[Rfam]
Rfam assigns this 101-nucleotide sequence from Neogobius melanostomus to the family "Small nucleolar RNA SNORD67". Pairs were carried over by alignment from the consensus structure. Lineage of the source: Eukaryota > Metazoa > Bilateria > Acanthomorphata > Neogobius. From the family's description: snoRNA HBII-166 belongs to the C/D family of snoRNAs. A reference for the family is Huttenhofer et al. (2001), "RNomics: an experimental approach that identifies 201 candidates for novel, small, non-messenger RNAs in mouse", EMBO J. The family has 15 seed sequences and 781 matches in Rfam 15.1.
Nucleotides: 101
Stems, first nucleotide, its partner, number of pairs: 004100001006098003023055001025053004030048003036044003
Number, partner (000 for none) and nucleotide at each position: 001000c002000g003000u004100g005000a006098g007097g008096g009000u010000g011000a012000u013000g014000a015000g016000u017000u018000g019000c020000a021000c022000u023055g024000u025053g026052u027051g028050a029000g030048g031047u032046c033000a034000g035000u036044g037043u038042g039000u040000g041000a042038c043037g044036c045000u046032g047031a048030c049000c050028u051027c052026g053025c054000u055023c056000u057000g058000a059000c060000c061000u062000c063000c064000u065000g066000a067000a068000g069000a070000g071000c072000g073000c074000u075000c076000g077000u078000g079000u080000g081000c082000a083000c084000a085000g086000g087000g088000c089000c090000a091000u092000c093000u094000g095000a096008c097007u098006c099000a100004c101000u